A member of the RNA family "c-di-GMP-I riboswitch aptamer" from Cetobacterium somerae, 76 nucleotides long.
[Rfam]
RNA sequence: AAUAAAAUAUGGCAAACUCAAAGAAAUUUGAGGACGCAAAGCUAUAGGGCCUGUAAAAUGGUAGCCAGUUGCACAA
Numbered sequence: 001a002a003u004a005a006a007a008u009a010u011g012g013c014a015a016a017c018u019c020a021a022a023g024a025a026a027u028u029u030g031a032g033g034a035c036g037c038a039a040a041g042c043u044a045u046a047g048g049g050c051c052u053g054u055a056a057a058a059u060g061g062u063a064g065c066c067a068g069u070u071g072c073a074c075a076a
Base pairs, nucleotide, nucleotide: 012037013036017032018031019030020029021028022027040070041069042068043067047066048065049062050061051060
It scores 63 bits against the family's covariance model. Rfam links the family to the GO term cyclic-di-GMP binding.